RNA sequence: CCGACAAUUGAAAAUGAACCUCAUAUAAAUUUGAGAAUAUGGCUCAGAAGUUUCUACCCAGCACCGUAAAUGGCUGGACUAUGAGGGAAGAUGGAUCAUUU
Numbered sequence: 001c002c003g004a005c006a007a008u009u010g011a012a013a014a015u016g017a018a019c020c021u022c023a024u025a026u027a028a029a030u031u032u033g034a035g036a037a038u039a040u041g042g043c044u045c046a047g048a049a050g051u052u053u054c055u056a057c058c059c060a061g062c063a064c065c066g067u068a069a070a071u072g073g074c075u076g077g078a079c080u081a082u083g084a085g086g087g088a089a090g091a092u093g094g095a096u097c098a099u100u101u
Stems, first nucleotide, its partner, number of pairs: 019086007030048006058077005063071001
Dot-bracket structure: ..................(((((((....((((((.......)))))).........((((((.......).)))))..)))))))...............
RNA: Purine riboswitch aptamer
Organism: Oceanobacillus iheyensis